[Rfam]
RNA: TPP riboswitch aptamer (THI element)
Organism: Actinobacillus indolicus
RNA sequence: CUGUUCUCAUCGGGGUGCUUUGUAACAAAGGCUGAGAAAUACCCAUAGAACCUGAUCUGACUAAUAUCAGCGUAGGGAUUUGAGACAGACAAUCUA
Numbered sequence: 001c002u003g004u005u006c007u008c009a010u011c012g013g014g015g016u017g018c019u020u021u022g023u024a025a026c027a028a029a030g031g032c033u034g035a036g037a038a039a040u041a042c043c044c045a046u047a048g049a050a051c052c053u054g055a056u057c058u059g060a061c062u063a064a065u066a067u068c069a070g071c072g073u074a075g076g077g078a079u080u081u082g083a084g085a086c087a088g089a090c091a092a093u094c095u096a
Stems, first nucleotide, its partner, number of pairs: 006084004012044003016039001017032005051076004057070004
Dot-bracket structure: .....((((..(((.((((((......)))))......)..)))......((((..((((......))))..))))....))))............